[Rfam]
RNA sequence: GGCCUGAUGCCACGUCUCUGUUAGCGAACGCAUUGACCAGAGAUGCUAUGAUUAGGCCAAAACAAAGUUGUUUCAACAUUUCACAUGUUGAUAGGAACCUGGGGGCUGCUUCUCUAUGUGUCCACAGAGCCGGUUAAUGUGAUUACAUGU
Numbered sequence: 001g002g003c004c005u006g007a008u009g010c011c012a013c014g015u016c017u018c019u020g021u022u023a024g025c026g027a028a029c030g031c032a033u034u035g036a037c038c039a040g041a042g043a044u045g046c047u048a049u050g051a052u053u054a055g056g057c058c059a060a061a062a063c064a065a066a067g068u069u070g071u072u073u074c075a076a077c078a079u080u081u082c083a084c085a086u087g088u089u090g091a092u093a094g095g096a097a098c099c100u101g102g103g104g105g106c107u108g109c110u111u112c113u114c115u116a117u118g119u120g121u122c123c124a125c126a127g128a129g130c131c132g133g134u135u136a137a138u139g140u141g142a143u144u145a146c147a148u149g150u
Stems, first nucleotide, its partner, number of pairs: 002057007009049001013045006020038001022036001024031002081142005094131002099127003103123004
A member of the RNA family "Small nucleolar RNA snoR2/U65" from Zea mays, 150 nucleotides long. A search with the family's covariance model found it, with a score of 127 bits. Rfam links the family to the GO terms RNA processing and nucleolus. The family is grouped with related families in Rfam's "SNORA65 clan". The family has 11 seed sequences and 908 matches in Rfam 15.1.